Notes: Rfam assigns this 126-nucleotide RNA sequence from Vulpes vulpes to the family "U4atac minor spliceosomal RNA". The family has 61 seed sequences and 1,648 matches in Rfam 15.1. Rfam describes the family as follows. U4atac is an essential component of the minor U12-type spliceosome complex which is required for removal of the rarer class of eukaryotic introns (AT-AC, U12-type). NCBI's taxonomy places the organism under Eukaryota, Euteleostomi, Dipnotetrapodomorpha, Caniformia, Vulpes. Rfam links the family to the GO terms U4atac snRNP, mRNA 5'-splice site recognition and pre-mRNA 5'-splice site binding. By type it is a spliceosomal small nuclear RNA.

[Rfam]
RNA sequence: ACCAUCCUUUUCUUGGGGUUGCGCUACUGUCCAAUGAGCGCGUAGCGAGGGCAGUACUGCUGACGCCUGCACAACACGCCCGCACCGGCUAAGGCUCCGCCUUAUCUCGGUGCAAUUUUUGGAAAA
Numbered sequence: 001a002c003c004a005u006c007c008u009u010u011u012c013u014u015g016g017g018g019u020u021g022c023g024c025u026a027c028u029g030u031c032c033a034a035u036g037a038g039c040g041c042g043u044a045g046c047g048a049g050g051g052c053a054g055u056a057c058u059g060c061u062g063a064c065g066c067c068u069g070c071a072c073a074a075c076a077c078g079c080c081c082g083c084a085c086c087g088g089c090u091a092a093g094g095c096u097c098c099g100c101c102u103u104a105u106c107u108c109g110g111u112g113c114a115a116u117u118u119u120u121g122g123a124a125a126a
Stems, first nucleotide, its partner, number of pairs: 006018004021060003026055007038046002082113006090104006